RNA sequence: CGAGUUAGCCGGGCAGUCGCUAUUUAUAGAGGAAAGUCCGGGCUCCAAAGAGCAUGGUGUUGGCUAACAGCCAACCAUUGUGAAAUGAGGAAUAGGGCCACAGAGACGAGCGUAUUUAGUUACGGUGAAACGCGGUAACCUCCACCAGGAGCAAGGCCAAAUAGGAUGACGAUAGUAUGGCUCGUACUGUCAUCGGGUAGGCCGCUAGAGAUAAUGAGUAAUCAUUAUUCAAGAUGAAUGACUGCACAAAUACAGAACCCGGCUUAUAGGCUAACUUAUUGA
Numbered sequence: 001c002g003a004g005u006u007a008g009c010c011g012g013g014c015a016g017u018c019g020c021u022a023u024u025u026a027u028a029g030a031g032g033a034a035a036g037u038c039c040g041g042g043c044u045c046c047a048a049a050g051a052g053c054a055u056g057g058u059g060u061u062g063g064c065u066a067a068c069a070g071c072c073a074a075c076c077a078u079u080g081u082g083a084a085a086u087g088a089g090g091a092a093u094a095g096g097g098c099c100a101c102a103g104a105g106a107c108g109a110g111c112g113u114a115u116u117u118a119g120u121u122a123c124g125g126u127g128a129a130a131c132g133c134g135g136u137a138a139c140c141u142c143c144a145c146c147a148g149g150a151g152c153a154a155g156g157c158c159a160a161a162u163a164g165g166a167u168g169a170c171g172a173u174a175g176u177a178u179g180g181c182u183c184g185u186a187c188u189g190u191c192a193u194c195g196g197g198u199a200g201g202c203c204g205c206u207a208g209a210g211a212u213a214a215u216g217a218g219u220a221a222u223c224a225u226u227a228u229u230c231a232a233g234a235u236g237a238a239u240g241a242c243u244g245c246a247c248a249a250a251u252a253c254a255g256a257a258c259c260c261g262g263c264u265u266a267u268a269g270g271c272u273a274a275c276u277u278a279u280u281g282a
Stems, first nucleotide, its partner, number of pairs: 002277009011267001013245006020029003034265003038262005043151004050183004055147005060074005075089001076087004090142002095140002097136003111124004155203004165194006174188005210229008

The family of this 282-nucleotide sequence from Methylophilales bacterium MBRS-H7 is "Bacterial RNase P class A". The family's RNA type in Rfam is ribozyme. A search with the family's covariance model found it, with a score of 238 bits. The base pairs follow the family's consensus structure, which is taken from published work.